The record is a 278-nucleotide RNA sequence from Saccharomyces arboricola, which matches "Small nucleolar RNA snR191" in Rfam. Rfam classes the family as an H/ACA-box small nucleolar RNA. The match comes from Rfam's covariance-model search (275 bits). The organism belongs to Saccharomyces arboricola, within Eukaryota. On this family, see Badis et al., RNA 2003: "A snoRNA that guides the two most conserved pseudouridine modifications within rRNA confers a growth advantage in yeast".
RNA sequence: UACCAAACCUUUUUGUCAGGGUGCUUCUUUGUCCGCUCUAGGAUAACCUUUUCUACAGAAGUGUCUGUUACUGUUUUGGAAGAGUAAUACUGUUCGCUUAUCCAUAUUUUCUCGUUCUGAGGAAGCCUGUUGGAUAAAUUAGAAGGAUAACCUUUGUUUUAAAGGUACACCUUCGUUUUUAGAGCAGUGAGGAUCUUAUGAGUUGAGCUUUUGUUAUCUUGAGAAAUAAAUUCUCAAGAUAUCCGUACAAUACGUUCGUAGUAAAGAUCCUCACAAUU
Numbered sequence: 001u002a003c004c005a006a007a008c009c010u011u012u013u014u015g016u017c018a019g020g021g022u023g024c025u026u027c028u029u030u031g032u033c034c035g036c037u038c039u040a041g042g043a044u045a046a047c048c049u050u051u052u053c054u055a056c057a058g059a060a061g062u063g064u065c066u067g068u069u070a071c072u073g074u075u076u077u078g079g080a081a082g083a084g085u086a087a088u089a090c091u092g093u094u095c096g097c098u099u100a101u102c103c104a105u106a107u108u109u110u111c112u113c114g115u116u117c118u119g120a121g122g123a124a125g126c127c128u129g130u131u132g133g134a135u136a137a138a139u140u141a142g143a144a145g146g147a148u149a150a151c152c153u154u155u156g157u158u159u160u161a162a163a164g165g166u167a168c169a170c171c172u173u174c175g176u177u178u179u180u181a182g183a184g185c186a187g188u189g190a191g192g193a194u195c196u197u198a199u200g201a202g203u204u205g206a207g208c209u210u211u212u213g214u215u216a217u218c219u220u221g222a223g224a225a226a227u228a229a230a231u232u233c234u235c236a237a238g239a240u241a242u243c244c245g246u247a248c249a250a251u252a253c254g255u256u257c258g259u260a261g262u263a264a265a266g267a268u269c270c271u272c273a274c275a276a277u278u
Base pairs, nucleotide, nucleotide: 003079004078005077006076007075019066020065021064022063023062024061025060026059027058028057030045031044032043033042034041090187091186092185093184094183095182098137099136100135101134102133103132104131107125108124109123110122111121112120113119142174143173144172145171146170150166151165152164153163154162155161156160189272190271191270192269194267195266196265197264204258205257206256207255208254211250212249213248214247217239218238219237220236221235222234223233224232225231